[Rfam]
Shown here is a 76-nucleotide sequence from Rousettus aegyptiacus, a member of the family "Small nucleolar RNA SNORD83".
The match comes from Rfam's covariance-model search (92 bits).
On this family, see Jady and Kiss, Nucleic Acids Res 2000: "Characterisation of the U83 and U84 small nucleolar RNAs: two novel 2'-O-ribose methylation guide RNAs that lack complementarities to ribosomal RNAs".
The family's consensus secondary structure was predicted with PFOLD.
It is annotated as a C/D-box small nucleolar RNA.
RNA sequence: GCCACAUGAUGUUUUCAUUUUGAAAAGUGAGCGAUGCGCAGUGAUGACCUUAAUCUAUCACCCUUGACUGAUGGCU
Number, nucleotide and partner (000 for none) at each position: 001g075002c074003c073004a072005c000006a000007u000008g000009a000010u000011g000012u000013u000014u000015u000016c000017a000018u000019u000020u000021u000022g000023a000024a000025a000026a000027g000028u000029g000030a000031g039032c038033g037034a000035u000036g000037c033038g032039c031040a000041g000042u000043g000044a000045u000046g000047a000048c000049c000050u000051u000052a000053a000054u000055c000056u000057a000058u000059c000060a000061c000062c000063c000064u000065u000066g000067a000068c000069u000070g000071a000072u004073g003074g002075c001076u000